[Rfam]
The family of this 82-nucleotide RNA sequence from Macaca fascicularis is "mir-1233 microRNA precursor family". Rfam 15.1 lists 251 matches to the family in 21 species.
RNA sequence: GUGAGCGGGAGGCCAGGGUACGGUAGGGGGAGCUGCAGGGCCGUCAGAGGGGCCCCAGCCUCUGAGUUGUGUCCUCCCGCAG
Numbered sequence: 001g002u003g004a005g006c007g008g009g010a011g012g013c014c015a016g017g018g019u020a021c022g023g024u025a026g027g028g029g030g031a032g033c034u035g036c037a038g039g040g041c042c043g044u045c046a047g048a049g050g051g052g053c054c055c056c057a058g059c060c061u062c063u064g065a066g067u068u069g070u071g072u073c074c075u076c077c078c079g080c081a082g
Stems, first nucleotide, its partner, number of pairs: 005080008014071002017068003028063003032059004038055005
A search with the family's covariance model found it, with a score of 90 bits.
Lineage of the source: Eukaryota > Metazoa > Bilateria > Deuterostomia > Macaca.
The family's consensus secondary structure was predicted with RNAalifold.